[Rfam]
RNA sequence: AAGACUAUACUUUCAGGGAUCGUUUAUAUAGUUUGCGGCUAGAGAAGUUUCCCAGCGUGAGGACCCACAGGAAGCACGAGGAGGAGGUACAGCAUUCUCCGUGGCGUGUGAAGCCAGCUCUAGGUGUUACUUUGCUGCAACUACAUUUGCCAUUGAUGAUCGUUCUUCUCUGGUCUCAGAGAGAGCAGAAGGGAGAGAAGAUGCAGUCUGAGUGAU
Numbered sequence: 001a002a003g004a005c006u007a008u009a010c011u012u013u014c015a016g017g018g019a020u021c022g023u024u025u026a027u028a029u030a031g032u033u034u035g036c037g038g039c040u041a042g043a044g045a046a047g048u049u050u051c052c053c054a055g056c057g058u059g060a061g062g063a064c065c066c067a068c069a070g071g072a073a074g075c076a077c078g079a080g081g082a083g084g085a086g087g088u089a090c091a092g093c094a095u096u097c098u099c100c101g102u103g104g105c106g107u108g109u110g111a112a113g114c115c116a117g118c119u120c121u122a123g124g125u126g127u128u129a130c131u132u133u134g135c136u137g138c139a140a141c142u143a144c145a146u147u148u149g150c151c152a153u154u155g156a157u158g159a160u161c162g163u164u165c166u167u168c169u170c171u172g173g174u175c176u177c178a179g180a181g182a183g184a185g186c187a188g189a190a191g192g193g194a195g196a197g198a199a200g201a202u203g204c205a206g207u208c209u210g211a212g213u214g215a216u
Base pairs, nucleotide, nucleotide: 002040003039005037006035007034009032010031011030015027017025018024049063050062051061053059073216075214076213077212092204093203094202095201096200098198099197102194106163107162108161117150118149122146124144125143126141127140128139130137166190167189170188171187172186174184175183176182
RNA: Small nucleolar RNA U3
Organism: Sapajus apella